The family of this 66-nucleotide sequence from Toxocara canis is "Small nucleolar RNA SNORD2". A reference for the family is Zhou et al. (2004), "Identification of a novel box C/D snoRNA from mouse nucleolar cDNA library", Gene. Rfam classes the family as a C/D-box small nucleolar RNA. The family's consensus secondary structure was predicted with WAR. Rfam 15.1 lists 1,116 matches to the family in 660 species. Gene Ontology terms of the family: RNA processing and nucleolus.

RNA sequence: GCGUGCGAUGAUGGUAUACCAUCUUUCGGGUCUGAGUAUGAUGACACCCAAUCACACUGAGCACGC
Numbered sequence: 001g002c003g004u005g006c007g008a009u010g011a012u013g014g015u016a017u018a019c020c021a022u023c024u025u026u027c028g029g030g031u032c033u034g035a036g037u038a039u040g041a042u043g044a045c046a047c048c049c050a051a052u053c054a055c056a057c058u059g060a061g062c063a064c065g066c
Base pairs, nucleotide, nucleotide: 001066002065003064004063005062006061